[Rfam]
Shown here is a 119-nucleotide RNA sequence from Lacticaseibacillus paracasei, a member of the family "FMN riboswitch aptamer (RFN element)". For this family Rfam cites "Coenzyme recognition and gene regulation by a flavin mononucleotide riboswitch" (Serganov et al., Nature, 2009). Taxonomically the source falls in Lacticaseibacillus paracasei (Bacteria, Bacillati, Bacilli, Lactobacillaceae).
RNA sequence: GUUCGUCUUCAGGGCAGGGUGCAAUUCCCGACCGGCGGUAUAGUCCGCGACCCGCUUAUGCGGUGGAACCGGUGUGACUCCGGUACCGAUAGUGAUAGUCUAGAUGGAAGAAGAUGGGG
Numbered sequence: 001g002u003u004c005g006u007c008u009u010c011a012g013g014g015c016a017g018g019g020u021g022c023a024a025u026u027c028c029c030g031a032c033c034g035g036c037g038g039u040a041u042a043g044u045c046c047g048c049g050a051c052c053c054g055c056u057u058a059u060g061c062g063g064u065g066g067a068a069c070c071g072g073u074g075u076g077a078c079u080c081c082g083g084u085a086c087c088g089a090u091a092g093u094g095a096u097a098g099u100c101u102a103g104a105u106g107g108a109a110g111a112a113g114a115u116g117g118g119g
Base pairs, nucleotide, nucleotide: 003117004116005115006114007113008112009111010110017029018028019027031099032098033088034087035048036047037046038045043086044085052063053062068084069083070082071081072080090102091101092100